RNA sequence: AACUUCUUCUUAAGCACUCUGCUCAAAUUGCAAAAUUCGGGUGUCUGACUUUUGUAAUAAUGCGAGUAGAGUACACCGAGGAAGGAGAAAAAAAUGCAUAGCAUUGCAAAUGAGACCAGGGUGGACCUCUUUCUUAAUGUCUGGUGUCCUUUGUCUCAAGAUUCUGUGCUACAUAC
Dot-bracket structure: ................((.(((((..((((..((..((((....))))..)).....))))..))))).))........................((((((.(..............(.(.((((..............)))).).)..............).)))))).......
Numbered sequence: 001a002a003c004u005u006c007u008u009c010u011u012a013a014g015c016a017c018u019c020u021g022c023u024c025a026a027a028u029u030g031c032a033a034a035a036u037u038c039g040g041g042u043g044u045c046u047g048a049c050u051u052u053u054g055u056a057a058u059a060a061u062g063c064g065a066g067u068a069g070a071g072u073a074c075a076c077c078g079a080g081g082a083a084g085g086a087g088a089a090a091a092a093a094a095u096g097c098a099u100a101g102c103a104u105u106g107c108a109a110a111u112g113a114g115a116c117c118a119g120g121g122u123g124g125a126c127c128u129c130u131u132u133c134u135u136a137a138u139g140u141c142u143g144g145u146g147u148c149c150u151u152u153g154u155c156u157c158a159a160g161a162u163u164c165u166g167u168g169c170u171a172c173a174u175a176c
Stems, first nucleotide, its partner, number of pairs: 017071002020068005027061004033052002037048004096169006103162001118147001120145001122143004